[Rfam]
Nucleotides: 058
Base pairs, nucleotide, nucleotide: 001053002052003051004050005049006048007047008046009045010044011043012042013041014040019036020035021034022033023032024031
Number, partner (000 for none) and nucleotide at each position: 001053a002052a003051g004050g005049g006048a007047g008046c009045a010044a011043u012042a013041a014040u015000u016000a017000u018000u019036u020035u021034c022033u023032u024031g025000u026000u027000u028000u029000a030000c031024c032023a033022a034021g035020a036019g037000g038000a039000c040014g041013u042012u043011a044010u045009u046008g047007c048006u049005c050004c051003u052002u053001u054000a055000c056000u057000u058000u